[Rfam]
RNA sequence: GUAAACACUGAGCAAAGCAGGUGAAAGCCUGUGACGCAAAGCUAUAGGGACUGUAAAAUGUCAGCCAGUUGCAUCA
Numbered sequence: 001g002u003a004a005a006c007a008c009u010g011a012g013c014a015a016a017g018c019a020g021g022u023g024a025a026a027g028c029c030u031g032u033g034a035c036g037c038a039a040a041g042c043u044a045u046a047g048g049g050a051c052u053g054u055a056a057a058a059u060g061u062c063a064g065c066c067a068g069u070u071g072c073a074u075c076a
Base pairs, nucleotide, nucleotide: 012037013036017032018031019030020029021028022027040070041069042068043067047066048065049062050061051060
This 76-nucleotide RNA from Lachnospiraceae bacterium XBD2001 belongs to the Rfam family "c-di-GMP-I riboswitch aptamer".
The match comes from Rfam's covariance-model search (52 bits).
GEMM was predicted in a large-scale screen for bacterial structured RNA regulatory elements. Genes associated with GEMM are involved in a diverse array of functions, including chemotaxis regulation, signal transduction, secretion and chitin.
The organism belongs to Lachnospiraceae, within Bacteria.
Its family is annotated with cyclic-di-GMP binding in the Gene Ontology.
The base pairs follow the family's consensus structure, which is taken from published work.